[Rfam]
RNA sequence: AGGAACAACAGUGGUGGCAGCCAGCUCUGGAGCCCUGCGUUCAACUCCUGCAGUAACUACGGAGCUCUCAGUCUACAGGGGCCUGGAUGCUCUGGGGACGG
Number, nucleotide and partner (000 for none) at each position: 001a000002g093003g092004a091005a000006c089007a088008a000009c085010a084011g083012u000013g000014g000015u000016g073017g072018c071019a068020g067021c000022c000023a066024g065025c064026u063027c062028u061029g060030g000031a058032g000033c000034c000035c053036u052037g051038c000039g000040u000041u000042c000043a000044a000045c000046u000047c000048c000049u000050g000051c037052a036053g035054u000055a000056a000057c000058u031059a000060c029061g028062g027063a026064g025065c024066u023067c020068u019069c000070a000071g018072u017073c016074u000075a000076c000077a000078g000079g000080g000081g000082c000083c011084u010085g009086g000087a000088u007089g006090c000091u004092c003093u002094g000095g000096g000097g000098a000099c000100g000101g000

The record is a 101-nucleotide RNA from Vulpes vulpes, which matches "mir-8834 microRNA precursor family" in Rfam. Rfam 15.1 lists 13,926 matches to the family in 17 species.